[Rfam]
RNA sequence: GGACUGUGAUGAUUGUGAUAGGUCUCGUUCGGCGUAAUUGUGUUCAACCACAUUGACGACCAUUCUGUUAUAUCACCACCCAUUAUCUGAGUCC
Numbered sequence: 001g002g003a004c005u006g007u008g009a010u011g012a013u014u015g016u017g018a019u020a021g022g023u024c025u026c027g028u029u030c031g032g033c034g035u036a037a038u039u040g041u042g043u044u045c046a047a048c049c050a051c052a053u054u055g056a057c058g059a060c061c062a063u064u065c066u067g068u069u070a071u072a073u074c075a076c077c078a079c080c081c082a083u084u085a086u087c088u089g090a091g092u093c094c
Stems, first nucleotide, its partner, number of pairs: 001094004042054001044052001
About this RNA:
A member of the RNA family "Small nucleolar RNA Z43" from Cuscuta europaea, 94 nucleotides long. Lineage of the source: Eukaryota > Streptophyta > Magnoliopsida > Convolvulaceae > Cuscuta subgen. Cuscuta. On this family, see Chen et al., Nucleic Acids Res 2003: "The high diversity of snoRNAs in plants: identification and comparative study of 120 snoRNA genes from Oryza sativa". By type it is a C/D-box small nucleolar RNA.